[Rfam]
The record is a 61-nucleotide sequence from Atlanticothrix silvestris, which matches "Nitrogen stress-induced RNA 1" in Rfam. It is annotated as a small RNA. The pairing is the family consensus, mapped onto this sequence.

RNA sequence: UAAUAAAUGCACCCUGAUAACUAACUCCCCUGGCUGGCUGCCACCACUAGGGGAUUUUUUU
Numbered sequence: 001u002a003a004u005a006a007a008u009g010c011a012c013c014c015u016g017a018u019a020a021c022u023a024a025c026u027c028c029c030c031u032g033g034c035u036g037g038c039u040g041c042c043a044c045c046a047c048u049a050g051g052g053g054a055u056u057u058u059u060u061u
Stems, first nucleotide, its partner, number of pairs: 004011001027053007035046003